[Rfam]
RNA sequence: AUGACCUUUAAUUUAGUCCAGUGAGGCUUGGAAGGAAUUCUGCAUGUAGGCAUUUUUUAAUAUUUGCCCGUAAGCAAGACUGCCCUGGACUACCAGAGCAGUCUUUUUUUC
Numbered sequence: 001a002u003g004a005c006c007u008u009u010a011a012u013u014u015a016g017u018c019c020a021g022u023g024a025g026g027c028u029u030g031g032a033a034g035g036a037a038u039u040c041u042g043c044a045u046g047u048a049g050g051c052a053u054u055u056u057u058u059a060a061u062a063u064u065u066g067c068c069c070g071u072a073a074g075c076a077a078g079a080c081u082g083c084c085c086u087g088g089a090c091u092a093c094c095a096g097a098g099c100a101g102u103c104u105u106u107u108u109u110u111c
Base pairs, nucleotide, nucleotide: 005035006034007033008032009031013030015028016027017026018025042075043074045072046071047070049068050067051066052065055062076105077104078103079102080101081100082099083098085096086095087094088093